[Rfam]
RNA: TPP riboswitch aptamer (THI element)
Organism: Corynebacterium kroppenstedtii
Nucleotides: 109
Stems, first nucleotide, its partner, number of pairs: 008095003011061004017033005040055005065090003071084004
Number, partner (000 for none) and nucleotide at each position: 001000u002000c003000g004000u005000c006000g007000a008095c009094c010093u011061a012060c013059g014058g015000g016000a017033g018032c019031c020030c021029a022000g023000u024000g025000a026000u027000u028000g029021u030020g031019g032018g033017c034000u035000g036000a037000g038000a039000g040055g041054g042053c043052g044051g045000g046000c047000a048000u049000c050000g051044c052043c053042g054041c055040c056000g057000a058014c059013c060012g061011u062000a063000a064000a065090c066089c067088u068000g069000a070000u071084g072083c073082g074081g075000a076000u077000a078000a079000u080000g081074c082073c083072g084071c085000c086000g087000g088067a089066g090065g091000g092000a093010a094009g095008g096000a097000g098000c099000c100000u101000a102000u103000g104000u105000c106000c107000c108000g109000g